[Rfam]
RNA sequence: CCAACGUGGACAUCCGGUGAGGUUGCUCUCGCAUGGCUCUGUCCUUGUGGCGUUUGGGAGCGUAGUACUUCACAGUACUGUGACGUACAGUCCCGUUCCACGACGUUGGAGAGCAAGCUUUGUCCCCGGCCUUCGGGCUGGUGAGGAGGGUGUUCUGUAUAUUCCUACAUCUUCCCAGAGCCCUUUGGGCCAUGACUGGGGGGCUAAACCAUGCAGUGUACAACC
Numbered sequence: 001c002c003a004a005c006g007u008g009g010a011c012a013u014c015c016g017g018u019g020a021g022g023u024u025g026c027u028c029u030c031g032c033a034u035g036g037c038u039c040u041g042u043c044c045u046u047g048u049g050g051c052g053u054u055u056g057g058g059a060g061c062g063u064a065g066u067a068c069u070u071c072a073c074a075g076u077a078c079u080g081u082g083a084c085g086u087a088c089a090g091u092c093c094c095g096u097u098c099c100a101c102g103a104c105g106u107u108g109g110a111g112a113g114c115a116a117g118c119u120u121u122g123u124c125c126c127c128g129g130c131c132u133u134c135g136g137g138c139u140g141g142u143g144a145g146g147a148g149g150g151u152g153u154u155c156u157g158u159a160u161a162u163u164c165c166u167a168c169a170u171c172u173u174c175c176c177a178g179a180g181c182c183c184u185u186u187g188g189g190c191c192a193u194g195a196c197u198g199g200g201g202g203g204c205u206a207a208a209c210c211a212u213g214c215a216g217u218g219u220a221c222a223a224c225c
Stems, first nucleotide, its partner, number of pairs: 001109007008044005014036003019028003047101004056094004060088001062086002065081002155216006171203006180190004
Source information: This 225-nucleotide RNA belongs to the Rfam family "Small nucleolar RNA SNORA73 family". Clan: snR30-U17 clan. The family's RNA type in Rfam is H/ACA-box small nucleolar RNA.